[Rfam]
RNA sequence: AAGCGGGAUAGAGGUGCGAAAACCAUCAGUACACAGUAGGAGGAUCAUGAGGUCCAGCGAAAAUUGUGGAAAGGGGAAUUCGCCGAAGCGGAGAGAAUCUCAUGUUCUCGAAGUUGGUUCUGGUAUUGAAUAAAUACAGGACUGUCAUAUAGGCGACUAUAUGGAGGGCUAUCUUACGC
Numbered sequence: 001a002a003g004c005g006g007g008a009u010a011g012a013g014g015u016g017c018g019a020a021a022a023c024c025a026u027c028a029g030u031a032c033a034c035a036g037u038a039g040g041a042g043g044a045u046c047a048u049g050a051g052g053u054c055c056a057g058c059g060a061a062a063a064u065u066g067u068g069g070a071a072a073g074g075g076g077a078a079u080u081c082g083c084c085g086a087a088g089c090g091g092a093g094a095g096a097a098u099c100u101c102a103u104g105u106u107c108u109c110g111a112a113g114u115u116g117g118u119u120c121u122g123g124u125a126u127u128g129a130a131u132a133a134a135u136a137c138a139g140g141a142c143u144g145u146c147a148u149a150u151a152g153g154c155g156a157c158u159a160u161a162u163g164g165a166g167g168g169c170u171a172u173c174u175u176a177c178g179c
Stems, first nucleotide, its partner, number of pairs: 006174006016083005023076002032068006087115003093109006116143007124136004145164007
Shown here is a 179-nucleotide RNA sequence from Thalassobacillus cyri, a member of the family "Lysine riboswitch aptamer". The organism belongs to Thalassobacillus, within Bacteria. Riboswitches are metabolite binding domains within certain messenger RNAs that serve as precision sensors for their corresponding targets.